Shown here is a 120-nucleotide RNA sequence from Paraburkholderia sp. LEh10, a member of the family "Guanidine-I riboswitch aptamer". Rfam's curators write: This family represents a conserved RNA structure found upstream of the ykkC and yxkD genes in Bacillus subtilis and related genes in other bacteria. The function of this family is unclear although it has been suggested that it may function to switch on efflux pumps and detoxification systems in response to harmful environmental molecules. Its family is annotated with regulation of gene expression in the Gene Ontology. NCBI's taxonomy places the organism under Bacteria, Pseudomonadati, Pseudomonadota, Betaproteobacteria, Paraburkholderia.

Nucleotides: 120
Stems, first nucleotide, its partner, number of pairs: 007078006015068002020065002022062001023060003027056002079093006095115001097118001101113003
Number, partner (000 for none) and nucleotide at each position: 001000c002000a003000a004000a005000u006000g007078g008077a009076c010075g011074a012073c013000u014000a015068g016067g017000g018000u019000u020065c021064c022062g023060g024059u025058c026000c027056c028055g029000u030000c031000u032000c033000g034000a035000u036000g037000c038000g039000a040000c041000a042000a043000c044000a045000g046000c047000a048000u049000u050000c051000g052000a053000u054000g055028c056027g057000c058025g059024a060023c061000g062022c063000u064021g065020g066000u067016c068015c069000g070000a071000g072000a073012g074011u075010u076009g077008u078007c079093g080092a081091c082090c083089u084088c085000a086000u087000c088084g089083a090082g091081g092080u093079u094000a095115c096000a097118c098000g099000g100000c101113g102112g103111g104000a105000c106000a107000a108000a109000a110000g111103c112102c113101c114000g115095g116000g117000a118097g119000a120000g